[Rfam]
RNA sequence: UUGUUAUCAAGAAAGGUGGAGGGAUUAGACCCUAUGAAGCCUUAGCAACCCUUUGUUUCUAUAAUAAAGAAGGUGCUAAAUUCUACCAACUGUUGAAAUUAAUUCAGCAUAUCGGCAGAUAACGA
Dot-bracket structure: ((((((((....(((((...(((..[[[[)))......)))))((((.((((((((.......))))))..))))))...(]]]](...........................)..)))))))))
Numbered sequence: 001u002u003g004u005u006a007u008c009a010a011g012a013a014a015g016g017u018g019g020a021g022g023g024a025u026u027a028g029a030c031c032c033u034a035u036g037a038a039g040c041c042u043u044a045g046c047a048a049c050c051c052u053u054u055g056u057u058u059c060u061a062u063a064a065u066a067a068a069g070a071a072g073g074u075g076c077u078a079a080a081u082u083c084u085a086c087c088a089a090c091u092g093u094u095g096a097a098a099u100u101a102a103u104u105c106a107g108c109a110u111a112u113c114g115g116c117a118g119a120u121a122a123c124g125a
Stems, first nucleotide, its partner, number of pairs: 001125008013043005021032003026085004044077004049073002051069006081117001086114001